A member of the RNA family "DUF3800-IX RNA", 71 nucleotides long. The family's consensus secondary structure is taken from published work. The family's RNA type in Rfam is small RNA. Rfam's curators put it in the seed alignment. From the family's description: Actinobacteria, Firmicutes (1 example), Nitrospirae, Proteobacteria, Verrucomicrobia (1 example).
[Rfam]
RNA sequence: GUCCCGCUGUACCGAAAAGUCUCCGUAGGGUGGCCUGCCAGCCGAGCGGCUGGAUAGGAGGCGGGACGCAC
Dot-bracket structure: (((((((....((.....(((.((....)).)))...((((........))))...))..)))))))....